RNA: MIR529 microRNA precursor family
Organism: Digitaria exilis
RNA sequence: UCAUCGACGCUAAAGGGAGAAGAGAGAGAGUACAGCCUUACCACGUACACGCGCACUUCAGAUCUCAUCAGUCUCCCAUGCAGUUAUGUGUGACUGUGAUGAAGGCUGUACCCUCUCUCUUCUUCUCUUAGCCUUUUUGAUGC
Dot-bracket structure: ....((..(..((.((((((((((((((.(((((((((................................................................))))))))).)))))))))))))).))..).....))....